[Rfam]
The family of this 248-nucleotide RNA sequence from Psychrobacillus soli is "Bacillus sRNA ncr1575".

RNA sequence: ACAACUAUUUUUGAGAGGAUGAUGGGUGGACAAUGGAUAUUUAAUCUUAUUUCUUAAGUAGAGGUUUUUUCUGCGACAUGUUUUCGCAGUAACAAAAUAAACACUACAAAAUCGGAAAUAGGAUUAGUCUGCCCAUUUUUCUAUCAAAUACGAAUGAUUCUCUACAAUACACUAAUUUGUAGUGGUUUUUUUGCGUAUUUAUUUUAUGGCAAGCAAUCCUUCCGAUUCAUAUUCGGAGGGAUUUUUUU
Numbered sequence: 001a002c003a004a005c006u007a008u009u010u011u012u013g014a015g016a017g018g019a020u021g022a023u024g025g026g027u028g029g030a031c032a033a034u035g036g037a038u039a040u041u042u043a044a045u046c047u048u049a050u051u052u053c054u055u056a057a058g059u060a061g062a063g064g065u066u067u068u069u070u071c072u073g074c075g076a077c078a079u080g081u082u083u084u085c086g087c088a089g090u091a092a093c094a095a096a097a098u099a100a101a102c103a104c105u106a107c108a109a110a111a112u113c114g115g116a117a118a119u120a121g122g123a124u125u126a127g128u129c130u131g132c133c134c135a136u137u138u139u140u141c142u143a144u145c146a147a148a149u150a151c152g153a154a155u156g157a158u159u160c161u162c163u164a165c166a167a168u169a170c171a172c173u174a175a176u177u178u179g180u181a182g183u184g185g186u187u188u189u190u191u192u193g194c195g196u197a198u199u200u201a202u203u204u205u206a207u208g209g210c211a212a213g214c215a216a217u218c219c220u221u222c223c224g225a226u227u228c229a230u231a232u233u234c235g236g237a238g239g240g241a242u243u244u245u246u247u248u
Base pairs, nucleotide, nucleotide: 016142017141018140019139023135024134025133026132029129030128031127042126043125044124045123046122047121048120049119050118051117052116053115054114058107059106060105061104151193152192153191159185160184162182163181164180165179215243216242217241218240219239220238221237222236223235224234225233
Dot-bracket structure: ...............((((...((((..(((..........(((((((((((((...((((..........................................))))......))))))))))))))))..))))...))))........(((.....((.((((.............)))).)).....))).....................(((((((((((.......))))))))))).....

The organism belongs to Psychrobacillus, within Bacteria. On this family, see Irnov et al., Nucleic Acids Res 2010: "Identification of regulatory RNAs in Bacillus subtilis". By type it is a small RNA.